glmS glucosamine-6-phosphate activated ribozyme aptamer: a 166-nucleotide sequence from Thermogemmatispora tikiterensis.
The match comes from Rfam's covariance-model search (72 bits).
The family's consensus secondary structure is taken from published work.
Taxonomically the source falls in Thermogemmatispora (Bacteria, Bacillati, Ktedonobacteria, Thermogemmatisporales).

[Rfam]
RNA sequence: UCUCAGUGAGUAGCGCAAGGGCCGGGCUGCAGGAGGGGCCACGGCUGACGAGGUGGGGGCUGUUCGGACAAUCAGCGGGGAGCCCCCAGGGGAGAUCACUUCCCUGUGAAGGGAGCGCACAAAACUGGCUGGUAACGGCCAGGACAAAACGCUCUCAGUGAUAUAG
Numbered sequence: 001u002c003u004c005a006g007u008g009a010g011u012a013g014c015g016c017a018a019g020g021g022c023c024g025g026g027c028u029g030c031a032g033g034a035g036g037g038g039c040c041a042c043g044g045c046u047g048a049c050g051a052g053g054u055g056g057g058g059g060c061u062g063u064u065c066g067g068a069c070a071a072u073c074a075g076c077g078g079g080g081a082g083c084c085c086c087c088a089g090g091g092g093a094g095a096u097c098a099c100u101u102c103c104c105u106g107u108g109a110a111g112g113g114a115g116c117g118c119a120c121a122a123a124a125c126u127g128g129c130u131g132g133u134a135a136c137g138g139c140c141a142g143g144a145c146a147a148a149a150c151g152c153u154c155u156c157a158g159u160g161a162u163a164u165a166g
Base pairs, nucleotide, nucleotide: 020046021045022044023043024042026040055087056086057085058084059083064075066073067072089105090104091103092102093101111156112155113154114153115152116151117150125142126141127140128139129138130137131136
Dot-bracket structure: ...................(((((.(.............).)))))........(((((....(.((....)).).......))))).(((((.......))))).....(((((((.......(((((((....))))))).......)))))))..........